Notes: Rfam assigns this 100-nucleotide RNA sequence from an Olavius algarvensis Delta 1 endosymbiont to the family "Pyrrolysine insertion sequence mtbB". Lineage of the source: Bacteria > delta/epsilon subdivisions > Deltaproteobacteria. On this family, see Theil Have et al., BMC Bioinformatics 2013: "Effects of using coding potential, sequence conservation and mRNA structure conservation for predicting pyrroly-sine containing genes". The family's consensus secondary structure was predicted with WAR. By type it is a cis-regulatory element.
RNA sequence: UAGAUUGGCGUCGGCGACCCUUUCGGGAUGCACCUGGCGCAUAUCUUUGCUUCGGGUAUGGGCGGCAUCCGAACCACCGGAGAUCUGGUGGCCUGGAUGC
Numbered sequence: 001u002a003g004a005u006u007g008g009c010g011u012c013g014g015c016g017a018c019c020c021u022u023u024c025g026g027g028a029u030g031c032a033c034c035u036g037g038c039g040c041a042u043a044u045c046u047u048u049g050c051u052u053c054g055g056g057u058a059u060g061g062g063c064g065g066c067a068u069c070c071g072a073a074c075c076a077c078c079g080g081a082g083a084u085c086u087g088g089u090g091g092c093c094u095g096g097a098u099g100c
Stems, first nucleotide, its partner, number of pairs: 007038001010035001014031003018026002074091004079086002